[Rfam]
RNA sequence: ACCUGCCUGCGGCGCUUGGUGCGCCGGAGGCACAAGACAGAGACAACACGACACCGUGCCCCGGGAAGAUCUGGGCACUUCUGGGCGUU
Number, nucleotide and partner (000 for none) at each position: 001a000002c000003c000004u032005g031006c030007c029008u028009g000010c026011g025012g024013c023014g022015c021016u000017u000018g000019g000020u000021g015022c014023g013024c012025c011026g010027g000028a008029g007030g006031c005032a004033c000034a000035a000036g000037a000038c000039a000040g000041a000042g000043a000044c000045a000046a000047c000048a000049c000050g000051a000052c000053a000054c000055c000056g078057u077058g076059c075060c074061c073062c000063g071064g000065g000066a000067a000068g000069a000070u000071c063072u000073g061074g060075g059076c058077a057078c056079u000080u000081c000082u000083g000084g000085g000086c000087g000088u000089u000